[Rfam]
RNA sequence: AAAACCCGGGUGGUACCUUGAUCAACCCGGAGGUCUGCCCAGGUCGAGGCCCUUCCAUUGCACUUCGGUUGGGCUGAACCCUGCGAUCACCCCAAAUGUGGGUGACUCGAGUGCGUAAUUUUUUCGUAAGGGGGACUGCGUUCGCGCUAUCCCCUG
Number, nucleotide and partner (000 for none) at each position: 001a000002a000003a000004a000005c113006c000007c111008g040009g039010g038011u037012g036013g035014u000015a034016c033017c032018u031019u030020g000021a000022u000023c000024a000025a000026c000027c000028c000029g000030g019031a018032g017033g016034u015035c013036u012037g011038c010039c009040c008041a082042g081043g080044u000045c000046g000047a000048g075049g074050c073051c000052c071053u000054u000055c068056c067057a000058u000059u000060g000061c000062a000063c000064u000065u000066c000067g056068g055069u000070u000071g052072g000073g050074c049075u048076g000077a000078a000079c000080c043081c042082u041083g000084c109085g108086a107087u105088c104089a103090c000091c101092c100093c000094a000095a000096a000097u000098g000099u000100g092101g091102g000103u089104g088105a087106c000107u086108c085109g084110a000111g007112u000113g005114c000115g000116u000117a000118a000119u000120u000121u000122u000123u000124u000125c000126g000127u000128a000129a155130g154131g153132g152133g151134g000135a150136c000137u000138g147139c146140g145141u000142u000143c000144g000145c140146g139147c138148u000149a000150u135151c133152c132153c131154c130155u129156g000

The family of this 156-nucleotide RNA from Elysia chlorotica is "U1 spliceosomal RNA". It is annotated as a spliceosomal small nuclear RNA. The family's consensus secondary structure is taken from published work. U1 is a small nuclear RNA (snRNA) component of the spliceosome (involved in pre-mRNA splicing). Its 5' end forms complementary base pairs with the 5' splice junction, thus defining the 5' donor site of an intron. There are significant differences in sequence and secondary structure between metazoan and yeast U1 snRNAs, the latter being much longer (568 nucleotides as compared to 164 nucleotides in human). A reference for the family is Zwieb (1997), "The uRNA database", Nucleic Acids Res.